The family of this 98-nucleotide sequence from Pseudocoprococcus catus is "Purine riboswitch aptamer". It scores 62 bits against the family's covariance model.
RNA sequence: AAAAUAAAUAUAUCAAUGGAUUAUAUAUGUUCAUAAUCAGGUUGAGCGUUUCUACCGGCUGCCGUAAACAGCCGACUAUAAUUCCCGAAGGCGGGAGA
Numbered sequence: 001a002a003a004a005u006a007a008a009u010a011u012a013u014c015a016a017u018g019g020a021u022u023a024u025a026u027a028u029g030u031u032c033a034u035a036a037u038c039a040g041g042u043u044g045a046g047c048g049u050u051u052c053u054a055c056c057g058g059c060u061g062c063c064g065u066a067a068a069c070a071g072c073c074g075a076c077u078a079u080a081a082u083u084c085c086c087g088a089a090g091g092c093g094g095g096a097g098a
Base pairs, nucleotide, nucleotide: 018084019083020082021081022080023079024078025077029047030046031045032044033043056074057073058072059071060070061069